[Rfam]
RNA sequence: ACGAGGCGGGUGGCCCUGCGGCCCUGCACGACCGAUAAACUGGUCUCGGACGACGUCGAGCGCAGCUCUCGGCCCGUCCGCCAAUGAUCAGCCAGCAGCCGCUGCAACCACAGGGAG
Numbered sequence: 001a002c003g004a005g006g007c008g009g010g011u012g013g014c015c016c017u018g019c020g021g022c023c024c025u026g027c028a029c030g031a032c033c034g035a036u037a038a039a040c041u042g043g044u045c046u047c048g049g050a051c052g053a054c055g056u057c058g059a060g061c062g063c064a065g066c067u068c069u070c071g072g073c074c075c076g077u078c079c080g081c082c083a084a085u086g087a088u089c090a091g092c093c094a095g096c097a098g099c100c101g102c103u104g105c106a107a108c109c110a111c112a113g114g115g116a117g
Stems, first nucleotide, its partner, number of pairs: 048079005056072005093104004
A member of the RNA family "Streptomyces-metK RNA" from Streptomyces longispororuber, 117 nucleotides long.
It is annotated as a small RNA.
The base pairs follow the family's consensus structure, which is taken from published work.
It scores 114 bits against the family's covariance model.